The record is a 68-nucleotide RNA from uncultured Faecalibacterium sp., which matches "HDV ribozyme from F. prausnitzii" in Rfam. On this family, see Webb et al., Science 2009: "Widespread occurrence of self-cleaving ribozymes".
[Rfam]
RNA sequence: GUUGCUCAAGUGUGCUACCUCUCCGUGGUGAGCAGCAGGCAACGGAUUAUAAUCCGGCUAAAGCAUAU
Numbered sequence: 001g002u003u004g005c006u007c008a009a010g011u012g013u014g015c016u017a018c019c020u021c022u023c024c025g026u027g028g029u030g031a032g033c034a035g036c037a038g039g040c041a042a043c044g045g046a047u048u049a050u051a052a053u054c055c056g057g058c059u060a061a062a063g064c065a066u067a068u
Base pairs, nucleotide, nucleotide: 001036002035003034004033005032006031007030017029018028019027043056044055045054046053047052
Rfam's curators put it in the seed alignment. The family's consensus secondary structure is taken from published work. Rfam 15.1 lists 3,803 matches to the family in 91 species.